[Rfam]
The record is a 440-nucleotide part of an RNA from Candidatus Cardinium hertigii, which matches "Bacterial large subunit ribosomal RNA" in Rfam. The match comes from Rfam's covariance-model search (2655 bits). The organism belongs to Candidatus Cardinium, within Bacteria. The base pairs follow the family's consensus structure, which is taken from published work.
RNA sequence: CUCUCCGAAAUGUUUUUAGGAACAGCCUUAAGUUUAUACUGAUAGGGGUAGAGCUACCGAUGGGACUAGGGGGGAAACCUACCGUGUCUAGACGAACUCCGAAUACUAUCAGUUUUGCUUAGGAGUGAGGGUUAGGGCGUCAAGGUCCUAAUCCGAGAGGGAAAGAACCCAGACCAUCAGCUAAGGUCCCUAAAUAUAUACUAAGUUGAACUAAGAUGGUUCAGUUGCUUAGACAGUCAGGAUGUUGGCUUGGAAGCAGCCAUUCAUUUGAAGAGUGCGUAACAGCUCACUGAUCGAGCAACAGGGCGUCAAUAAUGAACGGGCAUAAAGUAUAUUACCGAAGCUAUGGCCUUGCUAUUAGGUAGCAAGGGGUAGGAGAGCAUUCUAAUGAAGCUGAAGCUAAGCAAGUGAUUCUUAGUGGAUUUAUUAGAAAAGAAAAU
Dot-bracket structure: ((((((....(((((....))))).((((((((..(.((((((((.....(((....((...(((...(((((....))).))...)))...))..)).).....))))))))..)))))))).)...((((((((((......))))))))))....(((......)))...((((.(((...(((......(.((((((.............(((.((((.(((((.......(((((.(((..(((.........)))...)))(...)(...((......)).).)))))...))))).)))))))...................))))))))))...)))))))((((((((.....))))))))....))))))(.((((((((((......((((((.((....))))))))...))))))))))..).....